[Rfam]
RNA sequence: UAUUUAUGUAUGGUAAGUCAGUAAGGAGCGGAGGAACCAAUUUCGGGGCGUAUCUCUGGGAUAGCUCAAAGCUAAAGUGCGAAGAAUCAACUUCAAACAAAAGCUGGAAAUAUCUAGAGAAGAACAUCUCUCAGUUCUAGCCCGUCAGCUAACUUCGUCGGCAUUGGGAGGAGAUUGA
Numbered sequence: 001u002a003u004u005u006a007u008g009u010a011u012g013g014u015a016a017g018u019c020a021g022u023a024a025g026g027a028g029c030g031g032a033g034g035a036a037c038c039a040a041u042u043u044c045g046g047g048g049c050g051u052a053u054c055u056c057u058g059g060g061a062u063a064g065c066u067c068a069a070a071g072c073u074a075a076a077g078u079g080c081g082a083a084g085a086a087u088c089a090a091c092u093u094c095a096a097a098c099a100a101a102a103g104c105u106g107g108a109a110a111u112a113u114c115u116a117g118a119g120a121a122g123a124a125c126a127u128c129u130c131u132c133a134g135u136u137c138u139a140g141c142c143c144g145u146c147a148g149c150u151a152a153c154u155u156c157g158u159c160g161g162c163a164u165u166g167g168g169a170g171g172a173g174a175u176u177g178a
Base pairs, nucleotide, nucleotide: 004027005026028158029157030156031155032154033153038045046143047142048141054119055118056117057116058115059114060113122137123136124135125134
The record is a 178-nucleotide RNA from Nostoc sp. T09, which matches "c-di-AMP riboswitch aptamer (ydaO/yuaA leader)" in Rfam.
NCBI's taxonomy places the organism under Bacteria, Cyanobacteriota, Cyanophyceae, Nostocales, Nostoc.
A search with the family's covariance model found it, with a score of 59 bits.